[Rfam]
RNA sequence: CACGAGAGACAGGGGAGCCCUCCCGCGGUGUGGAGCCGGGGAGAGCUGAGAGUGCGGAUCCGCCGCAGACCCUCAGGACCUGAUCCGGUUAGCACCGGCGAAGGGAGUCGGAAUGUUCCGCCG
Numbered sequence: 001c002a003c004g005a006g007a008g009a010c011a012g013g014g015g016a017g018c019c020c021u022c023c024c025g026c027g028g029u030g031u032g033g034a035g036c037c038g039g040g041g042a043g044a045g046c047u048g049a050g051a052g053u054g055c056g057g058a059u060c061c062g063c064c065g066c067a068g069a070c071c072c073u074c075a076g077g078a079c080c081u082g083a084u085c086c087g088g089u090u091a092g093c094a095c096c097g098g099c100g101a102a103g104g105g106a107g108u109c110g111g112a113a114u115g116u117u118c119c120g121c122c123g
Base pairs, nucleotide, nucleotide: 008109009108010107011073012072013071014070017046018045020043021042022041023040024039053067054066055065056064057063079104080103081102085098086097087096088095
Dot-bracket structure: .......(((((((..((.(((((..............))))).))......(((((.....)))))..)))).....(((...((((......))))...)))..)))..............

Annotation
A member of the RNA family "TPP riboswitch aptamer (THI element)" from Nocardioides guangzhouensis, 123 nucleotides long. Taxonomically the source falls in Nocardioides (Bacteria, Bacillati, Actinomycetes, Propionibacteriales). Rfam describes the family as follows. Vitamin B(1) in its active form thiamin pyrophosphate (TPP) is an essential coenzyme that is synthesised by coupling of pyrimidine and thiazole moieties in bacteria. Gene Ontology term of the family: thiamine pyrophosphate binding.